This 69-nucleotide RNA sequence from Labedaea rhizosphaerae belongs to the Rfam family "ASpks TB sRNA".
The match comes from Rfam's covariance-model search (69 bits).
[Rfam]
RNA sequence: CUUCAUCGAGCCCAGCCACAACGGCCGCUCGCGCCGCUGCCCGUAGGCGGCGAGCACCGCCUGGGCUUC
Numbered sequence: 001c002u003u004c005a006u007c008g009a010g011c012c013c014a015g016c017c018a019c020a021a022c023g024g025c026c027g028c029u030c031g032c033g034c035c036g037c038u039g040c041c042c043g044u045a046g047g048c049g050g051c052g053a054g055c056a057c058c059g060c061c062u063g064g065g066c067u068u069c
Stems, first nucleotide, its partner, number of pairs: 015025003028065003032059002037054002041050003